[Rfam]
RNA sequence: AUUGAAAAGGGCAAACCUGUCGUAAGGCAGGGACGCAAAAUUACCGGUCCGAACUUAGUGGAUAGCGGGAUUGCCGAGC
Numbered sequence: 001a002u003u004g005a006a007a008a009g010g011g012c013a014a015a016c017c018u019g020u021c022g023u024a025a026g027g028c029a030g031g032g033a034c035g036c037a038a039a040a041u042u043a044c045c046g047g048u049c050c051g052a053a054c055u056u057a058g059u060g061g062a063u064a065g066c067g068g069g070a071u072u073g074c075c076g077a078g079c
Stems, first nucleotide, its partner, number of pairs: 003076002011036002016031006034065001039072004044068003047063003
This 79-nucleotide RNA from Novimethylophilus kurashikiensis belongs to the Rfam family "c-di-GMP-I-GGC riboswitch aptamer". A search with the family's covariance model found it, with a score of 69 bits. Its family is annotated with cyclic-di-GMP binding in the Gene Ontology.